Rfam assigns this 191-nucleotide sequence from Eucalyptus grandis to the family "MIR168 microRNA precursor family". On this family, see Reinhart et al., Genes Dev 2002: "MicroRNAs in plants".
[Rfam]
RNA sequence: UUACCGGCGGUCUCUGAUUCGCUUGGUGCAGGUCGGGACCUGGUUCCGCCCGCCGUCGAUGAUUCCUCCCCCUCUUCUCGAUCCAUCCCCGAUUCGAGGACCGCUUCGGGCCGCGGGGGAGCUUCCGACGGGGCUCAGGGGGCCGAAUUGGAUCCCGCCUUGCAUCAACUGAAUCGGAGGCCGAGGUGAAU
Numbered sequence: 001u002u003a004c005c006g007g008c009g010g011u012c013u014c015u016g017a018u019u020c021g022c023u024u025g026g027u028g029c030a031g032g033u034c035g036g037g038a039c040c041u042g043g044u045u046c047c048g049c050c051c052g053c054c055g056u057c058g059a060u061g062a063u064u065c066c067u068c069c070c071c072c073u074c075u076u077c078u079c080g081a082u083c084c085a086u087c088c089c090c091g092a093u094u095c096g097a098g099g100a101c102c103g104c105u106u107c108g109g110g111c112c113g114c115g116g117g118g119g120a121g122c123u124u125c126c127g128a129c130g131g132g133g134c135u136c137a138g139g140g141g142g143c144c145g146a147a148u149u150g151g152a153u154c155c156c157g158c159c160u161u162g163c164a165u166c167a168a169c170u171g172a173a174u175c176g177g178a179g180g181c182c183g184a185g186g187u188g189a190a191u
Stems, first nucleotide, its partner, number of pairs: 013178002017174004023168010034157005040151007